The record is a 104-nucleotide sequence, which matches "Small nucleolar RNA SNORD46" in Rfam. The pairing is the family consensus, mapped onto this sequence. The family is grouped with related families in Rfam's "SNORD46 clan". Gene Ontology terms of the family: nucleolus and RNA processing. Rfam classes the family as a C/D-box small nucleolar RNA. A reference for the family is Nicoloso et al. (1996), "Intron-encoded, antisense small nucleolar RNAs: the characterization of nine novel species points to their direct role as guides for the 2'-O-ribose methylation of rRNAs", J Mol Biol. About the family: U40 is a C/D box small nucleolar RNA, also known as snoZ153 in plants.
[Rfam]
RNA sequence: AAGUAGGGUGAUGAAAAAGAAUCCUUAGGCGUGGUUGUGGCCGUCUUGGUCACCUGUGUGCCACUUGCCAAUGCAAGGACUUGUCAUAGUUACACUGACUGUUG
Numbered sequence: 001a002a003g004u005a006g007g008g009u010g011a012u013g014a015a016a017a018a019g020a021a022u023c024c025u026u027a028g029g030c031g032u033g034g035u036u037g038u039g040g041c042c043g044u045c046u047u048g049g050u051c052a053c054c055u056g057u058g059u060g061c062c063a064c065u066u067g068c069c070a071a072u073g074c075a076a077g078g079a080c081u082u083g084u085c086a087u088a089g090u091u092a093c094a095c096u097g098a099c100u101g102u103u104g
Base pairs, nucleotide, nucleotide: 002103003102004101005100006099